PyrR binding site: a 171-nucleotide RNA from Paenibacillus sp. FSL R7-0331. NCBI's taxonomy places the organism under Bacteria, Bacillota, Bacilli, Caryophanales, Paenibacillus. A reference for the family is Bonner et al. (2001), "Molecular recognition of pyr mRNA by the Bacillus subtilis attenuation regulatory protein PyrR", Nucleic Acids Res. Rfam's curators write: This family represents the PyrR binding site and terminator structure. This RNA structure is found upstream of a variety of genes involved in pyrimidine biosynthesis and transport. The alignment also includes a portion of the antiterminator structure. The family's consensus secondary structure is taken from published work. Its family is annotated with pyrimidine nucleobase biosynthetic process and pyrimidine nucleobase transport in the Gene Ontology.

RNA sequence: UGCGCCUUUAAUUCAGUCCCGUGAGGCUGGCAAGGUAACGUGAAUCGAGGUUCGCGACAAAUGGAUGGGAUCCGUAUGAGUACGGAUAGCCUCUUUAUGCGCGCGGACACGCCAUCUUUUUUAAUCUGCGGAUUUCACUCCUUGCCUGCUUUGGGCAAGGAGUUUUUUGAU
Numbered sequence: 001u002g003c004g005c006c007u008u009u010a011a012u013u014c015a016g017u018c019c020c021g022u023g024a025g026g027c028u029g030g031c032a033a034g035g036u037a038a039c040g041u042g043a044a045u046c047g048a049g050g051u052u053c054g055c056g057a058c059a060a061a062u063g064g065a066u067g068g069g070a071u072c073c074g075u076a077u078g079a080g081u082a083c084g085g086a087u088a089g090c091c092u093c094u095u096u097a098u099g100c101g102c103g104c105g106g107a108c109a110c111g112c113c114a115u116c117u118u119u120u121u122u123a124a125u126c127u128g129c130g131g132a133u134u135u136c137a138c139u140c141c142u143u144g145c146c147u148g149c150u151u152u153g154g155g156c157a158a159g160g161a162g163u164u165u166u167u168u169g170a171u
Stems, first nucleotide, its partner, number of pairs: 004036005013030006063094003067090001070087007137163011